RNA sequence: GGUGCUAUGAUGAGAUGAAGACACCUAGAAAGUGGCUAUGGGCGGUGGUUUCUCCGUGAGCCUAAUGUCAAAAUGAUUUCUCCUUUCGCUGAACAUU
Numbered sequence: 001g002g003u004g005c006u007a008u009g010a011u012g013a014g015a016u017g018a019a020g021a022c023a024c025c026u027a028g029a030a031a032g033u034g035g036c037u038a039u040g041g042g043c044g045g046u047g048g049u050u051u052c053u054c055c056g057u058g059a060g061c062c063u064a065a066u067g068u069c070a071a072a073a074u075g076a077u078u079u080c081u082c083c084u085u086u087c088g089c090u091g092a093a094c095a096u097u
Stems, first nucleotide, its partner, number of pairs: 001097004

Rfam assigns this 97-nucleotide sequence from Lathyrus oleraceus to the family "Small nucleolar RNA Z152/R70/R12/".
The family's RNA type in Rfam is C/D-box small nucleolar RNA.
The literature on the family includes a 2001 paper in J Mol Biol by Barneche et al., "Identification of 66 box C/D snoRNAs in Arabidopsis thaliana: extensive gene duplications generated multiple isoforms predicting new ribosomal RNA 2'-O-methylation sites".